[Rfam]
RNA: Small nucleolar RNA snoR2/U65
RNA sequence: UGCCCGGUGCCACGUCCUCGGUAGCUUAUGAUCUAUUUGCACUGACCGUGGAUGCUAUGAUCGGGCAAAUAUUAAUCUUUUUUUUCACAUUUCUGAUAGGAAACCAAGGGCAUUUAUUUCUGUUGCUUUUUGGUGCCACUCUUGUGAUUAUAUUU
Numbered sequence: 001u002g003c004c005c006g007g008u009g010c011c012a013c014g015u016c017c018u019c020g021g022u023a024g025c026u027u028a029u030g031a032u033c034u035a036u037u038u039g040c041a042c043u044g045a046c047c048g049u050g051g052a053u054g055c056u057a058u059g060a061u062c063g064g065g066c067a068a069a070u071a072u073u074a075a076u077c078u079u080u081u082u083u084u085u086c087a088c089a090u091u092u093c094u095g096a097u098a099g100g101a102a103a104c105c106a107a108g109g110g111c112a113u114u115u116a117u118u119u120c121u122g123u124u125g126c127u128u129u130u131u132g133g134u135g136c137c138a139c140u141c142u143u144g145u146g147a148u149u150a151u152a153u154u155u
Stems, first nucleotide, its partner, number of pairs: 002066007009058001013054005020047003024040002085147005099137002104133003107129005